[Rfam]
Rfam assigns this 336-nucleotide part of an RNA from Maricaulis maris to the family "Bacterial large subunit ribosomal RNA".
NCBI's taxonomy places the organism under Bacteria, Pseudomonadati, Pseudomonadota, Maricaulis, Maricaulis maris.
On this family, see Cannone et al., BMC Bioinformatics 2002: "The comparative RNA web (CRW) site: an online database of comparative sequence and structure information for ribosomal, intron, and other RNAs".
Pairs were carried over by alignment from the consensus structure, which is taken from published work.
RNA sequence: UGAGAGAACUAUGCUGAAGGAACUCGGCAAAUUGCUCCCGUAAGUUCGCGAGAAGGGAGCCUCUGCAUUGGGCAACCAGUGUGGAGGGGCACAGACCAGGGGGUGGCGACUGUUUACUAAAAACACAGGGCUCUGCGAAGUCGCAAGACGACGUAUAGGGUCUGACGCCUGCCCGGUGCCGGAAGGUUAAAAGGAGGAGUGAGAGCUCCGAAUUGAAGCCCCGGUAAACGGCGGCCGUAACUAUAACGGUCCUAAGGUAGCGAAAUUCCUUGUCGGGUAAGUUCCGACCUGCACGAAUGGCGUAACGACUUCCCCGCUGUCUCCAGCAUAGACUCA
Numbered sequence: 001u002g003a004g005a006g007a008a009c010u011a012u013g014c015u016g017a018a019g020g021a022a023c024u025c026g027g028c029a030a031a032u033u034g035c036u037c038c039c040g041u042a043a044g045u046u047c048g049c050g051a052g053a054a055g056g057g058a059g060c061c062u063c064u065g066c067a068u069u070g071g072g073c074a075a076c077c078a079g080u081g082u083g084g085a086g087g088g089g090c091a092c093a094g095a096c097c098a099g100g101g102g103g104u105g106g107c108g109a110c111u112g113u114u115u116a117c118u119a120a121a122a123a124c125a126c127a128g129g130g131c132u133c134u135g136c137g138a139a140g141u142c143g144c145a146a147g148a149c150g151a152c153g154u155a156u157a158g159g160g161u162c163u164g165a166c167g168c169c170u171g172c173c174c175g176g177u178g179c180c181g182g183a184a185g186g187u188u189a190a191a192a193g194g195a196g197g198a199g200u201g202a203g204a205g206c207u208c209c210g211a212a213u214u215g216a217a218g219c220c221c222c223g224g225u226a227a228a229c230g231g232c233g234g235c236c237g238u239a240a241c242u243a244u245a246a247c248g249g250u251c252c253u254a255a256g257g258u259a260g261c262g263a264a265a266u267u268c269c270u271u272g273u274c275g276g277g278u279a280a281g282u283u284c285c286g287a288c289c290u291g292c293a294c295g296a297a298u299g300g301c302g303u304a305a306c307g308a309c310u311u312c313c314c315c316g317c318u319g320u321c322u323c324c325a326g327c328a329u330a331g332a333c334u335c336a
Base pairs, nucleotide, nucleotide: 001336002335003334004333009331010330011329012328013327014326015325016324018322019321020320035059036058037057038056039055044049060087061086062085063084064083065082066081067080068079069078070077071076088092100315101314102313103312105310106309107307108306111125112124113123128163129162130161131160132159133158134157135156136153140149141148142147166302167301168300169299171232172231173230176229177228178225179224180223181222182221185220186219187218191214192213196209197208198207199206200205233251234250235249236248237247238246252256262289272288273287274286275285276284277283